The record is a 339-nucleotide RNA sequence from Aspergillus tanneri, which matches "A. fumigatus sRNA Afu_309" in Rfam. The organism belongs to Aspergillus subgen. Circumdati, within Eukaryota. The family's RNA type in Rfam is small RNA. The family has 10 seed sequences and 663 matches in Rfam 15.1. Pairs were carried over by alignment from the consensus structure, which was predicted with WAR.
[Rfam]
RNA sequence: UCUCUCAGAACGCAUACGGAUCUGUGUCCAGCGAUCCUGAUCACGAAACGCUUGUACUCCUCCGGGAAGAAGGCUGUCUUUGUGUAUCGGUUGAUUACUGGACAGUUCGACGAGUUAAGGAGACACCACUUUUUUCUGCUGGUGUCAAUUUCCGGUCGACAGAUCUCAGAUUAAUUGUCGGCGUCAGGUAUCACUCUGGUCUUGAGUUCCUUCUUCCUUUCGGGGGAUUGGUGAAUUCGGCUGGAUGGCCUGGUGUCGGCGGCGCCAUAUUCCUGAUCUCUUCACCGAUUUGGCCAUUGGCUGGUGAGGUUAGAGACUAACCAUGGCAAGCCAACAUUA
Numbered sequence: 001u002c003u004c005u006c007a008g009a010a011c012g013c014a015u016a017c018g019g020a021u022c023u024g025u026g027u028c029c030a031g032c033g034a035u036c037c038u039g040a041u042c043a044c045g046a047a048a049c050g051c052u053u054g055u056a057c058u059c060c061u062c063c064g065g066g067a068a069g070a071a072g073g074c075u076g077u078c079u080u081u082g083u084g085u086a087u088c089g090g091u092u093g094a095u096u097a098c099u100g101g102a103c104a105g106u107u108c109g110a111c112g113a114g115u116u117a118a119g120g121a122g123a124c125a126c127c128a129c130u131u132u133u134u135u136c137u138g139c140u141g142g143u144g145u146c147a148a149u150u151u152c153c154g155g156u157c158g159a160c161a162g163a164u165c166u167c168a169g170a171u172u173a174a175u176u177g178u179c180g181g182c183g184u185c186a187g188g189u190a191u192c193a194c195u196c197u198g199g200u201c202u203u204g205a206g207u208u209c210c211u212u213c214u215u216c217c218u219u220u221c222g223g224g225g226g227a228u229u230g231g232u233g234a235a236u237u238c239g240g241c242u243g244g245a246u247g248g249c250c251u252g253g254u255g256u257c258g259g260c261g262g263c264g265c266c267a268u269a270u271u272c273c274u275g276a277u278c279u280c281u282u283c284a285c286c287g288a289u290u291u292g293g294c295c296a297u298u299g300g301c302u303g304g305u306g307a308g309g310u311u312a313g314a315g316a317c318u319a320a321c322c323a324u325g326g327c328a329a330g331c332c333a334a335c336a337u338u339a
Stems, first nucleotide, its partner, number of pairs: 018166008026103006033096004037090005042084002045080002048077002055072001058067003111158003115154001119146002122143001124141001177257001179255001183254006198242004204238006210231002261332003264327005277316005284310003292302004
Dot-bracket structure: .................((((((((((((((.(((((((((((.((.((.....(..(((....)))....)...)).))..)).)))))..)))).)))))).......(((.(...((.(.(................).).)).......).)))))))))))..........(.(...((((((.........((((..((((((((..................)).))))))))))......))))))).)...((((((((........(((((..(((.....((((...)))).....))).)))))......)))))..))).......
For this family Rfam cites "Small ncRNA transcriptome analysis from Aspergillus fumigatus suggests a novel mechanism for regulation of protein synthesis" (Jochl et al., Nucleic Acids Res, 2008).